[Rfam]
RNA sequence: UCUGGCGAUGGCCACACUUGCCCUCACUGAGAACAGCGCUCGCUGAUGAGAGCACCUCGAUUCGCUCGAUGGAGCCAAGCCAGA
Numbered sequence: 001u002c003u004g005g006c007g008a009u010g011g012c013c014a015c016a017c018u019u020g021c022c023c024u025c026a027c028u029g030a031g032a033a034c035a036g037c038g039c040u041c042g043c044u045g046a047u048g049a050g051a052g053c054a055c056c057u058c059g060a061u062u063c064g065c066u067c068g069a070u071g072g073a074g075c076c077a078a079g080c081c082a083g084a
Base pairs, nucleotide, nucleotide: 001084002083003082004081005080006079